[Rfam]
RNA sequence: GGGGACGACAUGGCUUCGACGCCGGUGGCGAACCCUUGAGUGCAUGUCGAGAUGGCAGCGAAUCUCGUUAAUCCAAAGCUGCAACGCAAUAGUCGCAAACGACGAAAACUACUCACUAGCAGCGUAAGCUGCUAGUCGUCCUGACUGGGUCGCCCGUAGCCCAGAGCUACAUCUCAGGACGUCAUCGCUUACGGGAUGCUCCUUUAACCAGAGCUCACUGGUUAGAGGCUAAGAUUCAAAGAGCUCGGUUCUUGCACCCUGACUCUCGGGUCGCUUGAACUUAAAUCAAUAGAGAGACGCUAAACAUGUAGACCUCAAGGCUGAGUACUGGCGGACGCGGGUUCAAUUCCCGCCGUCUCCACCA
Number, nucleotide and partner (000 for none) at each position: 001g360002g359003g358004g357005a356006c355007g354008a000009c000010a000011u000012g000013g000014c000015u000016u000017c000018g000019a000020c333021g332022c331023c330024g329025g328026u327027g326028g000029c000030g000031a000032a322033c000034c320035c319036u318037u317038g316039a315040g314041u000042g000043c308044a307045u306046g305047u304048c067049g066050a065051g064052a063053u000054g000055g082056c081057a080058g079059c078060g000061a000062a000063u052064c051065u050066c049067g048068u000069u000070a000071a000072u000073c000074c000075a000076a000077a000078g059079c058080u057081g056082c055083a000084a000085c000086g000087c000088a000089a000090u000091a000092g000093u000094c000095g000096c000097a000098a000099a000100c000101g000102a000103c000104g000105a000106a000107a000108a000109c000110u000111a000112c000113u000114c000115a136116c135117u134118a133119g132120c131121a130122g129123c128124g000125u000126a000127a000128g123129c122130u121131g120132c119133u118134a117135g116136u115137c181138g180139u179140c178141c177142u176143g000144a000145c164146u163147g162148g161149g160150u159151c000152g000153c195154c194155c193156g192157u191158a190159g150160c149161c148162c147163a146164g145165a000166g000167c000168u000169a000170c000171a000172u000173c000174u000175c000176a142177g141178g140179a139180c138181g137182u000183c000184a000185u000186c000187g000188c000189u000190u158191a157192c156193g155194g154195g153196a000197u000198g000199c000200u000201c228202c227203u226204u225205u224206a223207a222208c221209c000210a000211g000212a245213g244214c243215u242216c241217a000218c000219u000220g000221g208222u207223u206224a205225g204226a203227g202228g201229c000230u000231a000232a000233g000234a000235u000236u000237c000238a000239a000240a000241g216242a215243g214244c213245u212246c000247g281248g280249u279250u278251c277252u000253u000254g274255c273256a000257c270258c269259c268260u000261g300262a000263c000264u297265c294266u293267c292268g259269g258270g257271u000272c000273g255274c254275u000276u000277g251278a250279a249280c248281u247282u000283a000284a000285a000286u000287c000288a000289a000290u000291a000292g267293a266294g265295a000296g000297a264298c000299g000300c261301u000302a000303a000304a047305c046306a045307u044308g043309u000310a000311g000312a000313c000314c040315u039316c038317a037318a036319g035320g034321c000322u032323g000324a000325g000326u027327a026328c025329u024330g023331g022332c021333g020334g000335a000336c000337g353338c352339g351340g350341g349342u000343u000344c000345a000346a000347u000348u000349c341350c340351c339352g338353c337354c007355g006356u005357c004358u003359c002360c001361a000362c000363c000364a000
The family of this 364-nucleotide sequence from Marinobacter vulgaris is "transfer-messenger RNA".
For this family Rfam cites "Phylogenetic analysis of tmRNA secondary structure" (Williams and Bartel, RNA, 1996).
The source organism's lineage runs through Bacteria, Pseudomonadati, Gammaproteobacteria, Marinobacteraceae and Marinobacter.
The family's consensus secondary structure is taken from published work.